[Rfam]
RNA sequence: AGAGUCCUCGGCCUUCUCUACCCAGUUCUUCCCAUAGUCGGGGAAAAGCUGGGUUGAGAGGGCGAAAAAAAAAAAAA
Numbered sequence: 001a002g003a004g005u006c007c008u009c010g011g012c013c014u015u016c017u018c019u020a021c022c023c024a025g026u027u028c029u030u031c032c033c034a035u036a037g038u039c040g041g042g043g044a045a046a047a048g049c050u051g052g053g054u055u056g057a058g059a060g061g062g063c064g065a066a067a068a069a070a071a072a073a074a075a076a077a
Stems, first nucleotide, its partner, number of pairs: 014060005021053005029045002031042003
RNA: mir-320 microRNA precursor family
Organism: Callithrix jacchus